The record is a 190-nucleotide sequence from Brucella ceti, which matches "Brucella sRNA CI337" in Rfam. NCBI's taxonomy places the organism under Bacteria, Pseudomonadati, Pseudomonadota, Alphaproteobacteria, Brucella ceti. Rfam classes the family as a small RNA. It is one of the family's seed sequences. The base pairs follow the family's consensus structure, which was predicted with RNAfold.
RNA sequence: GCGAGGGUUCCUUUGAACGGUUCUUAAUUCCAGGCUGUCAUAUGCACCUGCCACCGCUUUUCGUCAAGAAACAGAAACCGCAACAGGGUGUCGCAGUAAUAAUCUUUCAGAAAGCGGGCAGUUUUAUGCCUGAUAUUACACCACGCUUUCGGUUUGGAAAAUAAAAAGGCGGCCAGAGGCCGCCUUUUGA
Numbered sequence: 001g002c003g004a005g006g007g008u009u010c011c012u013u014u015g016a017a018c019g020g021u022u023c024u025u026a027a028u029u030c031c032a033g034g035c036u037g038u039c040a041u042a043u044g045c046a047c048c049u050g051c052c053a054c055c056g057c058u059u060u061u062c063g064u065c066a067a068g069a070a071a072c073a074g075a076a077a078c079c080g081c082a083a084c085a086g087g088g089u090g091u092c093g094c095a096g097u098a099a100u101a102a103u104c105u106u107u108c109a110g111a112a113a114g115c116g117g118g119c120a121g122u123u124u125u126a127u128g129c130c131u132g133a134u135a136u137u138a139c140a141c142c143a144c145g146c147u148u149u150c151g152g153u154u155u156g157g158a159a160a161a162u163a164a165a166a167a168g169g170c171g172g173c174c175a176g177a178g179g180c181c182g183c184c185u186u187u188u189g190a
Stems, first nucleotide, its partner, number of pairs: 001094004009088004013083003018080005031050004036046003057074002059071004103158003110150007117142002121139002125135003164188011